[Rfam]
RNA sequence: UGAAGUGAUAGAGGAGCAGUCUUCAUCAGUAGGUCGCGCGAGAAGCAUGAACUUUUAUGAACGCGUCUGAAAGGGGAGUCUGCCGAAGCGGGAACGGAUUCAUGUCCGUUCCGGGCUGGACCUGCAUUGAAUAGAUGCAGAGCUGUCACACUUGAAGGGGCGUUUGCCUUGACGAAGUAGUGUGGAGAACUAUCUCAGCA
Numbered sequence: 001u002g003a004a005g006u007g008a009u010a011g012a013g014g015a016g017c018a019g020u021c022u023u024c025a026u027c028a029g030u031a032g033g034u035c036g037c038g039c040g041a042g043a044a045g046c047a048u049g050a051a052c053u054u055u056u057a058u059g060a061a062c063g064c065g066u067c068u069g070a071a072a073g074g075g076g077a078g079u080c081u082g083c084c085g086a087a088g089c090g091g092g093a094a095c096g097g098a099u100u101c102a103u104g105u106c107c108g109u110u111c112c113g114g115g116c117u118g119g120a121c122c123u124g125c126a127u128u129g130a131a132u133a134g135a136u137g138c139a140g141a142g143c144u145g146u147c148a149c150a151c152u153u154g155a156a157g158g159g160g161c162g163u164u165u166g167c168c169u170u171g172a173c174g175a176a177g178u179a180g181u182g183u184g185g186a187g188a189a190c191u192a193u194c195u196c197a198g199c200a
Base pairs, nucleotide, nucleotide: 007194008193009192010191011190016083017082018081019080021078022077023076024075032068033067035065036064037063038062087117088116089115091112092111093110094109095108096107097106098105118144119143122140123139124138125137126136127135128134146185147184148183149182150181151180152179
RNA: Lysine riboswitch aptamer
Organism: Sporolactobacillus inulinus